[Rfam]
RNA: mir-87 microRNA precursor family
RNA sequence: CACUAAUGGGCCUGAAUCGUUGCUCAGACCUGUAUUUUCGACCAGGUGAGCAAACUUUCAGGUGUGUUAGUGC
Numbered sequence: 001c002a003c004u005a006a007u008g009g010g011c012c013u014g015a016a017u018c019g020u021u022g023c024u025c026a027g028a029c030c031u032g033u034a035u036u037u038u039c040g041a042c043c044a045g046g047u048g049a050g051c052a053a054a055c056u057u058u059c060a061g062g063u064g065u066g067u068u069a070g071u072g073c
Stems, first nucleotide, its partner, number of pairs: 002071006010063006020053002023050004029046003